RNA sequence: AAAAUAAAGGAGCAAUACCAACACUUGCUAGAACAAGAAAUGGUUAUUGCUCCUUUAU
Numbered sequence: 001a002a003a004a005u006a007a008a009g010g011a012g013c014a015a016u017a018c019c020a021a022c023a024c025u026u027g028c029u030a031g032a033a034c035a036a037g038a039a040a041u042g043g044u045u046a047u048u049g050c051u052c053c054u055u056u057a058u
Stems, first nucleotide, its partner, number of pairs: 006056012021041001024037004